Rfam assigns this 61-nucleotide sequence from Streptomyces tirandamycinicus to the family "Actino-pnp RNA".
[Rfam]
RNA sequence: GCCGGUCCUCGGUAGUGGCCCCCGGAAGCCUGACGACCGGGUGCUUCGAUCGAAGACCGGC
Numbered sequence: 001g002c003c004g005g006u007c008c009u010c011g012g013u014a015g016u017g018g019c020c021c022c023c024g025g026a027a028g029c030c031u032g033a034c035g036a037c038c039g040g041g042u043g044c045u046u047c048g049a050u051c052g053a054a055g056a057c058c059g060g061c
Stems, first nucleotide, its partner, number of pairs: 001061007009053005017045003021041005028034001
The family's consensus secondary structure is taken from published work.